[Rfam]
RNA: Small nucleolar RNA SNORA84
Organism: Cavia porcellus
RNA sequence: UCCCUGCUGGGGGCUAUUGUUCAGAUGCAGCACUCCAAUAGGUACAAUGGGCCACAGCAAUCCUGUGAUUUUUGCAUGGCAUCUCAGCAGCUGCCAUAGCCCGGUCACUGGUACAUGG
Numbered sequence: 001u002c003c004c005u006g007c008u009g010g011g012g013g014c015u016a017u018u019g020u021u022c023a024g025a026u027g028c029a030g031c032a033c034u035c036c037a038a039u040a041g042g043u044a045c046a047a048u049g050g051g052c053c054a055c056a057g058c059a060a061u062c063c064u065g066u067g068a069u070u071u072u073u074g075c076a077u078g079g080c081a082u083c084u085c086a087g088c089a090g091c092u093g094c095c096a097u098a099g100c101c102c103g104g105u106c107a108c109u110g111g112u113a114c115a116u117g118g
Stems, first nucleotide, its partner, number of pairs: 001044001004041003008037004013031003017027001063110001065108006074100002076097004081092001083090002